[Rfam]
RNA sequence: UAUUGCGAAUCGCUUAAUCCGCGCAUACGCGCGGAGCGGGGGAACCAAUUUAUACAGGGGCUAAUCCACUAAUGUGGUAGGGAAUCCUUUGUCCCGAACCCGUCAGCUAACCCCGUAAGCGAAGAAAGGAGAGAUU
Numbered sequence: 001u002a003u004u005g006c007g008a009a010u011c012g013c014u015u016a017a018u019c020c021g022c023g024c025a026u027a028c029g030c031g032c033g034g035a036g037c038g039g040g041g042g043a044a045c046c047a048a049u050u051u052a053u054a055c056a057g058g059g060g061c062u063a064a065u066c067c068a069c070u071a072a073u074g075u076g077g078u079a080g081g082g083a084a085u086c087c088u089u090u091g092u093c094c095c096g097a098a099c100c101c102g103u104c105a106g107c108u109a110a111c112c113c114c115g116u117a118a119g120c121g122a123a124g125a126a127a128g129g130a131g132a133g134a135u136u
Stems, first nucleotide, its partner, number of pairs: 011121004018035007036116006046057001058101003066077004080095004